[Rfam]
RNA sequence: GUGCAAGUCUUCCAGCAUGGCUGGGCUUGGGGUAGCCUUGUCCAUUCCUGUAGAUCUUGCCAGAUCAGCACUGAGACGGUUUGAGGCCUUUUCCUGCUUCACCAAGAGGAGGUUAUAGAAAUCUCGGACAUCU
Numbered sequence: 001g002u003g004c005a006a007g008u009c010u011u012c013c014a015g016c017a018u019g020g021c022u023g024g025g026c027u028u029g030g031g032g033u034a035g036c037c038u039u040g041u042c043c044a045u046u047c048c049u050g051u052a053g054a055u056c057u058u059g060c061c062a063g064a065u066c067a068g069c070a071c072u073g074a075g076a077c078g079g080u081u082u083g084a085g086g087c088c089u090u091u092u093c094c095u096g097c098u099u100c101a102c103c104a105a106g107a108g109g110a111g112g113u114u115a116u117a118g119a120a121a122u123c124u125c126g127g128a129c130a131u132c133u
Base pairs, nucleotide, nucleotide: 003060004059005058006057007056018044019043020042023038024037025036026035027034072126073125074124075123076122087112088111089110090109091108092107095104096103
Rfam assigns this 133-nucleotide RNA sequence from Hymenochirus boettgeri to the family "Small nucleolar RNA SNORA9". Gene Ontology terms of the family: nucleolus and RNA processing. It is annotated as an H/ACA-box small nucleolar RNA. The family's consensus secondary structure was predicted with PFOLD. The organism belongs to Hymenochirus, within Eukaryota.